[Rfam]
RNA: mir-196 microRNA precursor family
RNA sequence: CGAGUGGUUUAGGUAGUUUCAUGUUGUUGGGAUCUGUCUUCUUACUCUGCAACACGAAACUGUCUUAAUUGCCUC
Numbered sequence: 001c002g003a004g005u006g007g008u009u010u011a012g013g014u015a016g017u018u019u020c021a022u023g024u025u026g027u028u029g030g031g032a033u034c035u036g037u038c039u040u041c042u043u044a045c046u047c048u049g050c051a052a053c054a055c056g057a058a059a060c061u062g063u064c065u066u067a068a069u070u071g072c073c074u075c
Stems, first nucleotide, its partner, number of pairs: 004072006011065009022054006029047003